S4-Clostridia ribosomal protein leader: a 50-nucleotide RNA sequence from Lachnospiraceae bacterium 2_1_46FAA. It is one of the family's seed sequences. The family's RNA type in Rfam is cis-regulatory leader. Taxonomically the source falls in Lachnospiraceae (Bacteria, Bacillota, Clostridia, Lachnospirales). For this family Rfam cites "Discovery of 20 novel ribosomal leader candidates in bacteria and archaea" (Eckert and Weinberg, BMC Microbiol, 2020). The base pairs follow the family's consensus structure, which is taken from published work.

RNA sequence: GAAAGGCUACUACUAUAGUAGCUGGAAGUAGAGAUACUUCCCAAUUUGAG
Numbered sequence: 001g002a003a004a005g006g007c008u009a010c011u012a013c014u015a016u017a018g019u020a021g022c023u024g025g026a027a028g029u030a031g032a033g034a035u036a037c038u039u040c041c042c043a044a045u046u047u048g049a050g
Stems, first nucleotide, its partner, number of pairs: 005023008024041007